[Rfam]
Background: Rfam assigns this 60-nucleotide sequence from Synechococcus sp. CC9311 to the family "Glutamine-II riboswitch aptamer". The source organism's lineage runs through Bacteria, Cyanophyceae, Synechococcales, Synechococcaceae and Synechococcus. On this family, see Huang et al., Nucleic Acids Res 2019: "Structure and ligand binding of the glutamine-II riboswitch".

RNA sequence: CAACGUUCACCUCACUUCUGUGAGGCGCAGACUCGCCAGGCCACGGAACGGGGACCUGGA
Numbered sequence: 001c002a003a004c005g006u007u008c009a010c011c012u013c014a015c016u017u018c019u020g021u022g023a024g025g026c027g028c029a030g031a032c033u034c035g036c037c038a039g040g041c042c043a044c045g046g047a048a049c050g051g052g053g054a055c056c057u058g059g060a
Stems, first nucleotide, its partner, number of pairs: 004050005010025005036059005041053002